[Rfam]
RNA sequence: CGGUGGGUGUGCUCCCAGGUCGCCUCGCCGUCGAGGAGCGAGCCGUCGCCGAAGUAGCCGCCGUCGGCGAGGACGUCGACGACCGCCUCGUCGCCGUACGGGCCGGAGCCGACCUUCUCCACCCGGCCGUGCGCCAGCAGGAAGACCCGGUCCGCCGGGCCGCCGGCCUCCACGAUGACGUCCCCGGGCGCGUACGCGCGCUGCGUGCAGCGCCGGGCCAGCUCGCCGAGCGCCGCCUCGUCGCCGUAUCCGCGCAGCGCGGGCAGCUCGCCCAGCUCGGCGGGGAUGACCUCGACGCGCUCCCCGGUCUGCACGAACGUCACGCGCCCGUCGCCCACGGCGUAGGCGUACCGGCGGUUCACCCGGUACGCGCCGCCCUGGACCUGCACCCACGGCAGCAUGCGCAGCAGCCACCGGGAGGUGAUCUCCUGCAUCUGGGGCGCCGACUUGGUGGUGGUCGCCAGGUUCCGCGCCGCGUCCGUGCCGAGGCUCUUCUGCGCGGGAGCC
Numbered sequence: 001c002g003g004u005g006g007g008u009g010u011g012c013u014c015c016c017a018g019g020u021c022g023c024c025u026c027g028c029c030g031u032c033g034a035g036g037a038g039c040g041a042g043c044c045g046u047c048g049c050c051g052a053a054g055u056a057g058c059c060g061c062c063g064u065c066g067g068c069g070a071g072g073a074c075g076u077c078g079a080c081g082a083c084c085g086c087c088u089c090g091u092c093g094c095c096g097u098a099c100g101g102g103c104c105g106g107a108g109c110c111g112a113c114c115u116u117c118u119c120c121a122c123c124c125g126g127c128c129g130u131g132c133g134c135c136a137g138c139a140g141g142a143a144g145a146c147c148c149g150g151u152c153c154g155c156c157g158g159g160c161c162g163c164c165g166g167c168c169u170c171c172a173c174g175a176u177g178a179c180g181u182c183c184c185c186g187g188g189c190g191c192g193u194a195c196g197c198g199c200g201c202u203g204c205g206u207g208c209a210g211c212g213c214c215g216g217g218c219c220a221g222c223u224c225g226c227c228g229a230g231c232g233c234c235g236c237c238u239c240g241u242c243g244c245c246g247u248a249u250c251c252g253c254g255c256a257g258c259g260c261g262g263g264c265a266g267c268u269c270g271c272c273c274a275g276c277u278c279g280g281c282g283g284g285g286a287u288g289a290c291c292u293c294g295a296c297g298c299g300c301u302c303c304c305c306g307g308u309c310u311g312c313a314c315g316a317a318c319g320u321c322a323c324g325c326g327c328c329c330g331u332c333g334c335c336c337a338c339g340g341c342g343u344a345g346g347c348g349u350a351c352c353g354g355c356g357g358u359u360c361a362c363c364c365g366g367u368a369c370g371c372g373c374c375g376c377c378c379u380g381g382a383c384c385u386g387c388a389c390c391c392a393c394g395g396c397a398g399c400a401u402g403c404g405c406a407g408c409a410g411c412c413a414c415c416g417g418g419a420g421g422u423g424a425u426c427u428c429c430u431g432c433a434u435c436u437g438g439g440g441c442g443c444c445g446a447c448u449u450g451g452u453g454g455u456g457g458u459c460g461c462c463a464g465g466u467u468c469c470g471c472g473c474c475g476c477g478u479c480c481g482u483g484c485c486g487a488g489g490c491u492c493u494u495c496u497g498c499g500c501g502g503g504a505g506c507c
Stems, first nucleotide, its partner, number of pairs: 006390006015381002018328002022325002025322001027320002031316002038312003042308004048304001051300001054233002059228002062225002065111004075103001077102001082097002085094002118221001122217002126213002130209001131206004140197001144195001150191001154189003158185002166173001234297002237294001240290004245285001249283002253279002256277003259271003329342004353377005360372001362370001391431002394428002397425001399423003403418001405416001407415001437476001439474002442471002445468002447465006477506002480501003484497001487496002
Description:
Saccharopolyspora sRNA 350: a 507-nucleotide RNA from Streptomyces rubrolavendulae. Gene Ontology term of the family: regulation of secondary metabolite biosynthetic process. By type it is an antisense RNA. The family's consensus secondary structure was predicted with RNAfold. The family has 2 seed sequences and 1,170 matches in Rfam 15.1. On this family, see Liu et al., PLoS One 2013: "Prediction and characterization of small non-coding RNAs related to secondary metabolites in Saccharopolyspora erythraea".